[Rfam]
Overview: The family of this 49-nucleotide RNA from Streptomyces sp. BR123 is "L31-Actinobacteria ribosomal protein leader". Taxonomically the source falls in Streptomyces (Bacteria, Bacillati, Kitasatosporales, Streptomycetaceae). For this family Rfam cites "Discovery of 20 novel ribosomal leader candidates in bacteria and archaea" (Eckert and Weinberg, BMC Microbiol, 2020). Rfam classes the family as a cis-regulatory leader.

Nucleotides: 049
Stems, first nucleotide, its partner, number of pairs: 003049003007045004015039004020034001022033002
Number, partner (000 for none) and nucleotide at each position: 001000u002000c003049g004048g005047c006000c007045c008044c009043g010042g011000u012000u013000c014000a015039c016038g017037c018036a019000c020034g021000c022033g023032g024000c025000a026000a027000u028000u029000c030000g031000g032023c033022c034020c035000c036018u037017g038016c039015g040000a041000c042010c043009c044008g045007g046000c047005g048004c049003c